[Rfam]
RNA: Glutamine-II riboswitch aptamer
RNA sequence: UAGCGUUGACCCGGAUCUUCCGGAUGCAGUUCGUUCCGGGCCAUGCAACGGGGGCCAGGA
Numbered sequence: 001u002a003g004c005g006u007u008g009a010c011c012c013g014g015a016u017c018u019u020c021c022g023g024a025u026g027c028a029g030u031u032c033g034u035u036c037c038g039g040g041c042c043a044u045g046c047a048a049c050g051g052g053g054g055c056c057a058g059g060a
Stems, first nucleotide, its partner, number of pairs: 004050005011023004035060003039056002041053002